[Rfam]
RNA sequence: GUAGGAUAUGGAGAUAUCUACCCCACGACCCCACUGGGGAAAGUGAUUGGUAGUGUCUGUUGUAUCUGCGGGGUCCUCGUAGUCGCUCUUCCUAUUCCUAUCAUCGUCAACAAC
Numbered sequence: 001g002u003a004g005g006a007u008a009u010g011g012a013g014a015u016a017u018c019u020a021c022c023c024c025a026c027g028a029c030c031c032c033a034c035u036g037g038g039g040a041a042a043g044u045g046a047u048u049g050g051u052a053g054u055g056u057c058u059g060u061u062g063u064a065u066c067u068g069c070g071g072g073g074u075c076c077u078c079g080u081a082g083u084c085g086c087u088c089u090u091c092c093u094a095u096u097c098c099u100a101u102c103a104u105c106g107u108c109a110a111c112a113a114c
Stems, first nucleotide, its partner, number of pairs: 001114002004111001008107004013102004020095001037077004049063001
The family of this 114-nucleotide RNA from Nezara viridula is "Potassium channel RNA editing signal". On this family, see Bhalla et al., Nat Struct Mol Biol 2004: "Control of human potassium channel inactivation by editing of a small mRNA hairpin". Taxonomically the source falls in Nezara (Eukaryota, Protostomia, Ecdysozoa, Pterygota).